[Rfam]
RNA sequence: AUUGUCCUCAUUUGUAAGUCACUUUGGAUAAAAGUGUCUGCUAAAUGGGUAAAU
Numbered sequence: 001a002u003u004g005u006c007c008u009c010a011u012u013u014g015u016a017a018g019u020c021a022c023u024u025u026g027g028a029u030a031a032a033a034g035u036g037u038c039u040g041c042u043a044a045a046u047g048g049g050u051a052a053a054u
Stems, first nucleotide, its partner, number of pairs: 013043001014041003020036006
Rfam assigns this 54-nucleotide sequence from Sinocyclocheilus anshuiensis to the family "UnaL2 LINE 3' element".
Pairs were carried over by alignment from the consensus structure, which is taken from published work.
From the family's description: The eel long interspersed element (LINE) UnaL2 and its partner short interspersed element (SINE) share a conserved 3' tail containing a stem-loop that is critical for their retrotransposition.
Rfam classes the family as a cis-regulatory element.
The source organism's lineage runs through Eukaryota, Euteleostomi, Cypriniphysae, Cyprinidae and Sinocyclocheilus.
The literature on the family includes a 2004 paper in RNA by Baba et al., "Solution structure of an RNA stem-loop derived from the 3' conserved region of eel LINE UnaL2".
Rfam links the family to the GO term transposition, RNA-mediated.